[Rfam]
mir-1759 microRNA precursor family: a 75-nucleotide RNA sequence from Baryphthengus martii. It scores 58 bits against the family's covariance model. The source organism's lineage runs through Eukaryota, Metazoa, Archelosauria, Coraciimorphae and Baryphthengus. Pairs were carried over by alignment from the consensus structure, which was predicted with RNAalifold.

RNA sequence: GCUGCUGUAGGGUGGGAGGAGAGCGGUGUUAUCUUAUCAGCUGCCUCCUCUGCCAUCCUGUCCUUGCGGAGAAGC
Dot-bracket structure: (((.((.(..((.((((((..((.((.(.((.((....)).)).).)).)).)).))))..))....).)).)))